[Rfam]
RNA: t44 RNA
RNA sequence: AUUGGACACAUUAAUCGCCACACACGUGUCGGCACCGUCUUCGGGGUGCUGCUGGCGGUCCUUCCUCGAAACGAGGCCGGGCCACGAGCGGUCGAAGCCGGGGAUACGUGGAGGUCCCAAC
Numbered sequence: 001a002u003u004g005g006a007c008a009c010a011u012u013a014a015u016c017g018c019c020a021c022a023c024a025c026g027u028g029u030c031g032g033c034a035c036c037g038u039c040u041u042c043g044g045g046g047u048g049c050u051g052c053u054g055g056c057g058g059u060c061c062u063u064c065c066u067c068g069a070a071a072c073g074a075g076g077c078c079g080g081g082c083c084a085c086g087a088g089c090g091g092u093c094g095a096a097g098c099c100g101g102g103g104a105u106a107c108g109u110g111g112a113g114g115u116c117c118c119a120a121c
Stems, first nucleotide, its partner, number of pairs: 023110008035101003039097005048092005